[Rfam]
RNA: mir-574 microRNA precursor family
Organism: Myotis davidii
RNA sequence: AGGCCUGCAGAGAGAGAGACAGGGUCGGAUCCAUAGCCUCUGUGGCAGUUGUUAAUCAGCUGUUGCCUCUCUCUUUCUCUCCG
Numbered sequence: 001a002g003g004c005c006u007g008c009a010g011a012g013a014g015a016g017a018g019a020c021a022g023g024g025u026c027g028g029a030u031c032c033a034u035a036g037c038c039u040c041u042g043u044g045g046c047a048g049u050u051g052u053u054a055a056u057c058a059g060c061u062g063u064u065g066c067c068u069c070u071c072u073c074u075u076u077c078u079c080u081c082c083g
Base pairs, nucleotide, nucleotide: 010075011074012073013072014071015070016069017068018067020065021064022063024061026059028057029056030055034051035050036049037048
Dot-bracket structure: .........(((((((((.(((.(.(.(((...((((..........))))...))).).).))).)))))))))........